Rfam assigns this 443-nucleotide sequence from Blastomyces parvus to the family "RNase MRP". Rfam links the family to the GO terms ribonuclease MRP activity, ribonuclease MRP complex and rRNA processing. Taxonomically the source falls in Blastomyces (Eukaryota, Ascomycota, Pezizomycotina, Eurotiomycetidae).
RNA sequence: UCCUCGCUCAAAGAAUCGCAUUCAAAGCUUACGCACAGAGGAAGUCUUCCUUCCUCAUACCAUUACUCUUUAGCUUUGGGAGAAAGUCCCCGGACACCCUGCGCCCUCGUCUUAAAACCGCGGGGGUCCCUCAUCAACAAGCCAGGCACUGCGGAAACGCGCCGCCAUAGAAGCAUUUCUCAUAGCGGCUUACGCCUCUUUUCCCUUCCCUUCCUUCUCCCUCCGGGAAGAAGAAGGGCUCGUCUCCAUUCUAGCCCGACUCUUCAGAUGUUUUAUUCUGUGGAGGAAACAAUGGUGGUUUAAAUGGGACGAGGUCUUCGGACGAGGGGGAGGUUGCUAUUCGUCGUGGUUCGAUAGUCAUGCGAUUGCUUGGUUUCCCGCGUGUAUUUUAUUAUAUAUGUGUGGAACCGGGUAACUCGAUGGGGCUUAUUCUUGAGGCGAGG
Numbered sequence: 001u002c003c004u005c006g007c008u009c010a011a012a013g014a015a016u017c018g019c020a021u022u023c024a025a026a027g028c029u030u031a032c033g034c035a036c037a038g039a040g041g042a043a044g045u046c047u048u049c050c051u052u053c054c055u056c057a058u059a060c061c062a063u064u065a066c067u068c069u070u071u072a073g074c075u076u077u078g079g080g081a082g083a084a085a086g087u088c089c090c091c092g093g094a095c096a097c098c099c100u101g102c103g104c105c106c107u108c109g110u111c112u113u114a115a116a117a118c119c120g121c122g123g124g125g126g127u128c129c130c131u132c133a134u135c136a137a138c139a140a141g142c143c144a145g146g147c148a149c150u151g152c153g154g155a156a157a158c159g160c161g162c163c164g165c166c167a168u169a170g171a172a173g174c175a176u177u178u179c180u181c182a183u184a185g186c187g188g189c190u191u192a193c194g195c196c197u198c199u200u201u202u203c204c205c206u207u208c209c210c211u212u213c214c215u216u217c218u219c220c221c222u223c224c225g226g227g228a229a230g231a232a233g234a235a236g237g238g239c240u241c242g243u244c245u246c247c248a249u250u251c252u253a254g255c256c257c258g259a260c261u262c263u264u265c266a267g268a269u270g271u272u273u274u275a276u277u278c279u280g281u282g283g284a285g286g287a288a289a290c291a292a293u294g295g296u297g298g299u300u301u302a303a304a305u306g307g308g309a310c311g312a313g314g315u316c317u318u319c320g321g322a323c324g325a326g327g328g329g330g331a332g333g334u335u336g337c338u339a340u341u342c343g344u345c346g347u348g349g350u351u352c353g354a355u356a357g358u359c360a361u362g363c364g365a366u367u368g369c370u371u372g373g374u375u376u377c378c379c380g381c382g383u384g385u386a387u388u389u390u391a392u393u394a395u396a397u398a399u400g401u402g403u404g405g406a407a408c409c410g411g412g413u414a415a416c417u418c419g420a421u422g423g424g425g426c427u428u429a430u431u432c433u434u435g436a437g438g439c440g441a442g443g
Stems, first nucleotide, its partner, number of pairs: 002443006008436004014367006022080001023078006038056007084428003088425004184199002187196003203336001210333005216327004311319003369412009